[Rfam]
RNA sequence: AAAACAGUUAUAGCGCCAGUACUGAAAAAAUCGGACGAUAGAUUUUCAGUAGACGAGGUGGAGGAGUAUCGAUAUUUCGGCGGAUGCCUCCCGGUCGACAGCCCGACCGUCAGUUUAUCUUUAAAACAAAAAAGCGAUUUUUUGGACAAAGAGAUAAAACGGCAAAAA
Numbered sequence: 001a002a003a004a005c006a007g008u009u010a011u012a013g014c015g016c017c018a019g020u021a022c023u024g025a026a027a028a029a030a031u032c033g034g035a036c037g038a039u040a041g042a043u044u045u046u047c048a049g050u051a052g053a054c055g056a057g058g059u060g061g062a063g064g065a066g067u068a069u070c071g072a073u074a075u076u077u078c079g080g081c082g083g084a085u086g087c088c089u090c091c092c093g094g095u096c097g098a099c100a101g102c103c104c105g106a107c108c109g110u111c112a113g114u115u116u117a118u119c120u121u122u123a124a125a126a127c128a129a130a131a132a133a134g135c136g137a138u139u140u141u142u143u144g145g146a147c148a149a150a151g152a153g154a155u156a157a158a159a160c161g162g163c164a165a166a167a168a
Stems, first nucleotide, its partner, number of pairs: 020051008029043001060091005069080004092109006114158007127144007

Shown here is a 168-nucleotide RNA from Kurthia sibirica, a member of the family "glmS glucosamine-6-phosphate activated ribozyme aptamer". Its family is annotated with regulation of gene expression and catalytic activity in the Gene Ontology.